[Rfam]
RNA sequence: ACGCCGCGACGGGCUGUCGAGAGCCGCGUCUGCGGCGCUGUGAGACGGCCUGACGGCGU
Numbered sequence: 001a002c003g004c005c006g007c008g009a010c011g012g013g014c015u016g017u018c019g020a021g022a023g024c025c026g027c028g029u030c031u032g033c034g035g036c037g038c039u040g041u042g043a044g045a046c047g048g049c050c051u052g053a054c055g056g057c058g059u
Stems, first nucleotide, its partner, number of pairs: 010052009023036005
The record is a 59-nucleotide RNA from Pyrobaculum calidifontis, which matches "Pyrobac-1 RNA" in Rfam. For this family Rfam cites "Discovery of Pyrobaculum small RNA families with atypical pseudouridine guide RNA features" (Bernick et al., RNA, 2012). The base pairs follow the family's consensus structure, which is taken from published work. By type it is a small RNA. Rfam's curators put it in the seed alignment.